RNA sequence: UUUGGAUCUAUGAUGAUUAGUUUUAUUACUGCGUUAUCUUUCUAGAAUUCCUAAUUAUGGGAUUGAAGAAGAUUUAUAUAACUGAGAUCCAAU
Numbered sequence: 001u002u003u004g005g006a007u008c009u010a011u012g013a014u015g016a017u018u019a020g021u022u023u024u025a026u027u028a029c030u031g032c033g034u035u036a037u038c039u040u041u042c043u044a045g046a047a048u049u050c051c052u053a054a055u056u057a058u059g060g061g062a063u064u065g066a067a068g069a070a071g072a073u074u075u076a077u078a079u080a081a082c083u084g085a086g087a088u089c090c091a092a093u
Stems, first nucleotide, its partner, number of pairs: 002092006
RNA: Small nucleolar RNA snoR27
Organism: Anisodus acutangulus